[Rfam]
The family of this 33-nucleotide RNA is "DUF805b RNA". Clan: DUF805 clan. The family's consensus secondary structure is taken from published work. It is one of the family's seed sequences.
RNA sequence: UUAGCGUAUUCCGAAAAGCUAAAAGAGUAGGGA
Numbered sequence: 001u002u003a004g005c006g007u008a009u010u011c012c013g014a015a016a017a018g019c020u021a022a023a024a025g026a027g028u029a030g031g032g033a
Base pairs, nucleotide, nucleotide: 003020004019005018010032011031012030